Background: Rfam assigns this 133-nucleotide sequence from Gasterosteus aculeatus to the family "Small nucleolar RNA SNORA13". Rfam describes the family as follows. ACA13 is a member of the H/ACA class of snoRNA that guide the sites of modification of uridines to pseudouridines. The source organism's lineage runs through Eukaryota, Vertebrata, Euteleosteomorpha, Acanthomorphata and Gasterosteus. Rfam's curators put it in the seed alignment.
RNA sequence: UGCCUUUAUGUGUUGCCCUUUCAUUGUUCCCUUAGUGAUCGGGGUGUCAAAUAAGGCAUACAAUGACACUUGUGGCUGUUUGGUAAAAUUGGUUUCACGUGACUUCUUUUCAUUAACAGCUGCAAGGACAUUU
Numbered sequence: 001u002g003c004c005u006u007u008a009u010g011u012g013u014u015g016c017c018c019u020u021u022c023a024u025u026g027u028u029c030c031c032u033u034a035g036u037g038a039u040c041g042g043g044g045u046g047u048c049a050a051a052u053a054a055g056g057c058a059u060a061c062a063a064u065g066a067c068a069c070u071u072g073u074g075g076c077u078g079u080u081u082g083g084u085a086a087a088a089u090u091g092g093u094u095u096c097a098c099g100u101g102a103c104u105u106c107u108u109u110u111c112a113u114u115a116a117c118a119g120c121u122g123c124a125a126g127g128a129c130a131u132u133u
Stems, first nucleotide, its partner, number of pairs: 002057005011049002014046004018041001021038005069126004075120005084115003087110001088108001092103002